[Rfam]
RNA sequence: CCAGAUGACUGGGCGGUCGCUGUGGAUGUGAGAUCUCUCACGAAGCAGAGGAAAGUCCGGGCUCCACGGUAAUAUGGCGGCGGGUAACUCCCGCCGGGGGUGACCCCAGGGAUAGCGCCACAGAGAGCAGACCGCCGGACUCCGGUUCGGCAAGGGUGAAAGGGUGCGGUAAGAGCGCACCGCGUUUCCGGCAACGGACACGGCAUGGCAAGCCCCGUCAGGAGCAAGACCAAAUAGGAACGGCGCGUCGUACCGGGCAACCGGCGACAGGGCAUUACCGCCCCAGACCGUUCGGGUAGGUUGCGUGAGCCGUCCAGCAAUGGCCGGCCAAGAGGAAUGAUCGCCCACGCGGAGGCAACUCCGCUGGACAGAACCCGGCUUACAGGUCAUCUGGCCCA
Numbered sequence: 001c002c003a004g005a006u007g008a009c010u011g012g013g014c015g016g017u018c019g020c021u022g023u024g025g026a027u028g029u030g031a032g033a034u035c036u037c038u039c040a041c042g043a044a045g046c047a048g049a050g051g052a053a054a055g056u057c058c059g060g061g062c063u064c065c066a067c068g069g070u071a072a073u074a075u076g077g078c079g080g081c082g083g084g085u086a087a088c089u090c091c092c093g094c095c096g097g098g099g100g101u102g103a104c105c106c107c108a109g110g111g112a113u114a115g116c117g118c119c120a121c122a123g124a125g126a127g128c129a130g131a132c133c134g135c136c137g138g139a140c141u142c143c144g145g146u147u148c149g150g151c152a153a154g155g156g157u158g159a160a161a162g163g164g165u166g167c168g169g170u171a172a173g174a175g176c177g178c179a180c181c182g183c184g185u186u187u188c189c190g191g192c193a194a195c196g197g198a199c200a201c202g203g204c205a206u207g208g209c210a211a212g213c214c215c216c217g218u219c220a221g222g223a224g225c226a227a228g229a230c231c232a233a234a235u236a237g238g239a240a241c242g243g244c245g246c247g248u249c250g251u252a253c254c255g256g257g258c259a260a261c262c263g264g265c266g267a268c269a270g271g272g273c274a275u276u277a278c279c280g281c282c283c284c285a286g287a288c289c290g291u292u293c294g295g296g297u298a299g300g301u302u303g304c305g306u307g308a309g310c311c312g313u314c315c316a317g318c319a320a321u322g323g324c325c326g327g328c329c330a331a332g333a334g335g336a337a338u339g340a341u342c343g344c345c346c347a348c349g350c351g352g353a354g355g356c357a358a359c360u361c362c363g364c365u366g367g368a369c370a371g372a373a374c375c376c377g378g379c380u381u382a383c384a385g386g387u388c389a390u391c392u393g394g395c396c397c398a
Stems, first nucleotide, its partner, number of pairs: 001394010011383001012345007020048004053381003057378005062224004072276001075220005080094005095109001096107004110215002115213002117209003132155002134151007163181006182204001183202003187198004228302004238293006270283004309328004314323003
Rfam assigns this 398-nucleotide RNA from Asticcacaulis sp. AC466 to the family "Bacterial RNase P class A". It is annotated as a ribozyme. Its Rfam clan is "RNaseP clan". It scores 293 bits against the family's covariance model.